[Rfam]
RNA sequence: GAGUUCACGGCCGUGGCGAGGCUAAGGGGUUUACGCCCCGGAGCCGUAGGGAAACCGACAUGCCCGCAGCACUUUAUGUGCGAGGGGCGGGGUCCGAAAGGGCCCGGAGUCACGGCCGUGAGACCCGAAGCCGGCCGAUCUAGCCCUGGGCAGGGUGAAGCCACUCUUACGAGUGGUGGAGGCCCGAAGGGGUGUUGUAGUGCAAAACGCUCCCCUGACCCGGGGCUAGGGGUGAAAGGCCAAUCGAGGCCGGUGACAGCUGGUU
Numbered sequence: 001g002a003g004u005u006c007a008c009g010g011c012c013g014u015g016g017c018g019a020g021g022c023u024a025a026g027g028g029g030u031u032u033a034c035g036c037c038c039c040g041g042a043g044c045c046g047u048a049g050g051g052a053a054a055c056c057g058a059c060a061u062g063c064c065c066g067c068a069g070c071a072c073u074u075u076a077u078g079u080g081c082g083a084g085g086g087g088c089g090g091g092g093u094c095c096g097a098a099a100g101g102g103c104c105c106g107g108a109g110u111c112a113c114g115g116c117c118g119u120g121a122g123a124c125c126c127g128a129a130g131c132c133g134g135c136c137g138a139u140c141u142a143g144c145c146c147u148g149g150g151c152a153g154g155g156u157g158a159a160g161c162c163a164c165u166c167u168u169a170c171g172a173g174u175g176g177u178g179g180a181g182g183c184c185c186g187a188a189g190g191g192g193u194g195u196u197g198u199a200g201u202g203c204a205a206a207a208c209g210c211u212c213c214c215c216u217g218a219c220c221c222g223g224g225g226c227u228a229g230g231g232g233u234g235a236a237a238g239g240c241c242a243a244u245c246g247a248g249g250c251c252g253g254u255g256a257c258a259g260c261u262g263g264u265u
Stems, first nucleotide, its partner, number of pairs: 005121013020045004026039004049056002062088004069081004091104004124263002127260001131253006140229011151217001153185004160177007189214004194210002197208002231241003
Archaeal large subunit ribosomal RNA: a 265-nucleotide part of an RNA from Methanothermus fervidus.
The source organism's lineage runs through Archaea, Methanobacteriati, Methanobacteriota, Methanothermus and Methanothermus fervidus.
Pairs were carried over by alignment from the consensus structure, which is taken from published work.